[Rfam]
RNA sequence: GGAUGUGAGGGCGAACUGGCUGUGACAUCUGUAACUCACCAUUGAUCGCUAGGGUUGAUUCGGCUGAUCUGGCUAGGCGGGUGUCCCCUUCCUCCCUCAACGCUCCACGUGCGUCCCUCCCGAAGCCCCGCGCUCGGUGGAAGAGGAUGCGACCCUUGGGUGUUCGAGUAGCGACCAGAGAACCUCUAAACAAGCGAAACUGAGCAAGUCCAAGCUUCCGAGAGAGUUCACACACAUCUGAGUGAGGCGCUGCACGUGGCAGUCUGCCUUUCUUU
Number, nucleotide and partner (000 for none) at each position: 001g106002g105003a104004u000005g000006u099007g098008a097009g096010g095011g094012c000013g091014a090015a000016c000017u000018g088019g087020c000021u000022g000023u000024g085025a084026c083027a082028u081029c080030u079031g078032u077033a000034a000035c076036u075037c000038a000039c072040c071041a070042u000043u000044g069045a068046u067047c066048g064049c063050u062051a000052g000053g000054g000055u000056u000057g000058a000059u000060u000061c000062g050063g049064c048065u000066g047067a046068u045069c044070u041071g040072g039073c000074u000075a036076g035077g032078c031079g030080g029081g028082u027083g026084u025085c024086c000087c019088c018089u000090u014091c013092c000093u000094c011095c010096c009097u008098c007099a006100a000101c000102g000103c000104u003105c002106c001107a000108c000109g000110u000111g000112c000113g000114u146115c145116c143117c000118u141119c140120c137121c136122g135123a134124a000125g133126c132127c000128c000129c000130g000131c000132g126133c125134u123135c122136g121137g120138u000139g000140g119141a118142a000143g116144a000145g115146g114147a000148u000149g000150c000151g000152a000153c000154c000155c000156u000157u000158g000159g000160g000161u000162g000163u000164u000165c000166g000167a000168g000169u000170a000171g215172c214173g000174a209175c208176c000177a000178g000179a000180g000181a000182a000183c000184c204185u203186c202187u000188a000189a000190a000191c000192a000193a000194g000195c000196g000197a000198a000199a000200c000201u000202g186203a185204g184205c000206a000207a000208g175209u174210c000211c000212a000213a000214g172215c171216u000217u000218c000219c000220g000221a000222g000223a000224g000225a000226g000227u000228u000229c000230a000231c000232a000233c000234a000235c000236a000237u000238c000239u000240g275241a274242g273243u000244g270245a269246g268247g267248c266249g263250c262251u261252g260253c259254a000255c000256g000257u000258g000259g253260c252261a251262g250263u249264c000265u000266g248267c247268c246269u245270u244271u000272c000273u242274u241275u240

The record is a 275-nucleotide sequence from Polypterus senegalus, which matches "7SK RNA" in Rfam. 7SK was discovered as an abundant small nuclear RNA in the mid-70s but a possible function has only recently been suggested. Two independent studies have found that 7SK RNA binds the CDK9/cyclin T complex (known as elongation factor P-TEFb). P-TEFb activates transcription by phosphorylating the C-terminal domain of RNA polymerase II. This process is negatively regulated by the 7SK RNP. The secondary structure of 7SK RNA shown here was proposed by Wasserman and Steitz on the basis of chemical modification and enzymatic cleavage experiments. This family contains a number of annotated pseudogenes and 7SK derived repeats. Rfam classes the family as a non-coding RNA gene. The literature on the family includes a 2002 paper in Curr Biol by Blencowe, "Transcription: surprising role for an elusive small nuclear RNA".